The family of this 585-nucleotide RNA sequence is "ROOL RNA". Rfam describes the family as follows. Firmicutes, Fusobacteria (1 example), Tenericutes (1 example). The sequence is in the family's curated seed alignment. The family's RNA type in Rfam is small RNA.
RNA sequence: GUAUAAUGAUGCAAUAAUCGGCAACUCAGUGAAGAGGGUUUAGUCAGCCUUGCUGAGAACGGUUUGAAUGCAAAGUCUUGUUUAUAUGGGAUACUGUAUAAUUAAGGCUUCUUGUUGAUAGUGAUUGAUACAGGGUAAAGACAGAGGUCUUAAGUGCAAGAACCGGUUGCCGGUCUAUAUGAGCAAAUAGUAAAUCCAACGAGUCGGAGCGAUAAUUGAGGAGAUUCACAGCAAUGGGAAUCAAUGCGGCUCUUAAGUGCUAUAUGGGGACAUAUAGAUUACUGAGAGUAAUUCCAAAACAAGCUCUUGCCAAUGAACCGGAGAAAUCCGGCUAUAAGACAAAACAGGAUUGUGCGAGUACCACAAGGCGUUCUUUUACAAGAAUAUUUUUGGUAAAUAUUUUAAUGAAAAUGCUGAAUGACGUGGGAAAGUUGGGGGUAUCAUUCCCCUCAGAGCAUUGGGCGAAAGCCGGGGCGUACAGGUUAGGACGACGGUCCGAAGCUUCAGGUAUGUCUCCUCUGUGACAGAAUAUUGCGUAGUAUAGGUUUGGGUAGGGCGAAGGUCCGCCGAUUAUUGUUUUUUUUA
Number, nucleotide and partner (000 for none) at each position: 001g000002u000003a000004u000005a000006a000007u000008g581009a580010u000011g578012c000013a000014a575015u000016a000017a572018u000019c000020g000021g568022c000023a000024a000025c057026u056027c055028a054029g053030u000031g000032a000033a000034g000035a000036g050037g049038g048039u047040u046041u000042a000043g000044u000045c000046a040047g039048c038049c037050u036051u000052g000053c029054u028055g027056a026057g025058a000059a000060c165061g164062g163063u162064u161065u160066g000067a000068a000069u000070g000071c000072a000073a000074a109075g108076u107077c106078u105079u104080g000081u000082u101083u100084a099085u098086a097087u096088g095089g094090g000091a000092u000093a000094c089095u088096g087097u086098a085099u084100a083101a082102u000103u000104a079105a078106g077107g076108c075109u074110u135111c134112u133113u132114g131115u130116u000117g000118a000119u000120a125121g000122u000123g000124a000125u120126u000127g000128a000129u000130a115131c114132a113133g112134g111135g110136u000137a000138a151139a150140g149141a148142c147143a000144g000145a000146g000147g142148u141149c140150u139151u138152a000153a000154g000155u000156g000157c000158a000159a000160g065161a064162a063163c062164c061165g060166g000167u000168u000169g000170c000171c000172g000173g547174u000175c545176u544177a000178u000179a000180u000181g000182a000183g000184c000185a000186a533187a000188u000189a532190g000191u000192a000193a351194a350195u349196c348197c000198a000199a000200c000201g000202a000203g340204u339205c338206g307207g306208a305209g304210c303211g000212a000213u000214a000215a000216u000217u000218g000219a000220g000221g000222a000223g000224a000225u000226u000227c238228a000229c236230a235231g000232c000233a000234a000235u230236g229237g000238g227239a000240a000241u000242c000243a000244a000245u000246g000247c000248g000249g289250c288251u287252c286253u285254u284255a000256a000257g279258u278259g000260c277261u000262a000263u274264a273265u272266g000267g000268g295269g294270a293271c000272a265273u264274a263275u000276a000277g260278a258279u257280u000281a000282c000283u000284g254285a253286g252287a251288g250289u249290a000291a000292u000293u270294c269295c268296a000297a000298a000299a000300c000301a000302a000303g210304c209305u208306c207307u206308u370309g369310c368311c367312a000313a000314u000315g000316a000317a000318c331319c330320g329321g328322a327323g000324a000325a000326a000327u322328c321329c320330g319331g318332c000333u000334a000335u000336a000337a000338g205339a204340c203341a000342a000343a000344a000345c000346a000347g000348g196349a195350u194351u193352g000353u000354g000355c431356g000357a000358g000359u000360a000361c426362c425363a424364c423365a000366a000367g311368g310369c309370g308371u000372u000373c000374u000375u000376u000377u000378a000379c000380a000381a000382g000383a000384a000385u000386a000387u000388u000389u000390u000391u000392g000393g000394u000395a000396a000397a000398u000399a000400u000401u000402u000403u000404a000405a000406u000407g000408a000409a000410a000411a000412u000413g000414c507415u506416g505417a000418a000419u000420g000421a000422c000423g364424u363425g362426g361427g000428a000429a000430a000431g355432u000433u000434g000435g450436g449437g448438g447439u000440a000441u000442c000443a000444u000445u000446c000447c438448c437449c436450u435451c000452a520453g519454a518455g470456c000457a000458u000459u000460g000461g469462g000463c000464g000465a000466a000467a000468g000469c461470c455471g517472g516473g515474g514475c000476g000477u000478a000479c000480a509481g504482g503483u000484u500485a000486g497487g496488a495489c494490g000491a000492c000493g000494g489495u488496c487497c486498g000499a000500a484501g000502c000503u482504u481505c416506a415507g414508g000509u480510a000511u000512g000513u000514c474515u473516c472517c471518u454519c453520u452521g000522u000523g000524a000525c000526a000527g000528a000529a000530u000531a000532u189533u186534g000535c000536g000537u000538a000539g000540u000541a000542u000543a000544g176545g175546u000547u173548u000549g000550g000551g000552u000553a000554g565555g564556g563557c562558g000559a000560a000561g000562g557563u556564c555565c554566g000567c000568c021569g000570a000571u000572u017573a000574u000575u014576g000577u000578u011579u000580u009581u008582u000583u000584u000585a000
Pairs were carried over by alignment from the consensus structure, which is taken from published work.